RNA: Small nucleolar RNA Z256
RNA sequence: AUUUGCCAAUCACUAUGACAUGAUCCACUCGGGCUUGGCUGACUGACCUCCCCGAGUACACUAUCAACAGCUGGGCCAAACUGAAGGCCCAGUU
Numbered sequence: 001a002u003u004u005g006c007c008a009a010u011c012a013c014u015a016u017g018a019c020a021u022g023a024u025c026c027a028c029u030c031g032g033g034c035u036u037g038g039c040u041g042a043c044u045g046a047c048c049u050c051c052c053c054g055a056g057u058a059c060a061c062u063a064u065c066a067a068c069a070g071c072u073g074g075g076c077c078a079a080a081c082u083g084a085a086g087g088c089c090c091a092g093u094u
Stems, first nucleotide, its partner, number of pairs: 003092003007087001